The record is a 102-nucleotide RNA sequence from Pontibacillus halophilus, which matches "Purine riboswitch aptamer" in Rfam. It scores 86 bits against the family's covariance model. Rfam's curators write: Riboswitches are metabolite binding domains within certain messenger RNAs that serve as precision sensors for their corresponding targets.
RNA sequence: AAAAACUUAACAAGUCAUACUCAUAUAAUAGCGAGGAUAAGGCUCGCAAGUUUCUACCGGAGAACCGUAAAUUUUCUGACUAUGAGUAUUACGUCGUUCAUG
Numbered sequence: 001a002a003a004a005a006c007u008u009a010a011c012a013a014g015u016c017a018u019a020c021u022c023a024u025a026u027a028a029u030a031g032c033g034a035g036g037a038u039a040a041g042g043c044u045c046g047c048a049a050g051u052u053u054c055u056a057c058c059g060g061a062g063a064a065c066c067g068u069a070a071a072u073u074u075u076c077u078g079a080c081u082a083u084g085a086g087u088a089u090u091a092c093g094u095c096g097u098u099c100a101u102g
Stems, first nucleotide, its partner, number of pairs: 018088008029049001031047005058078007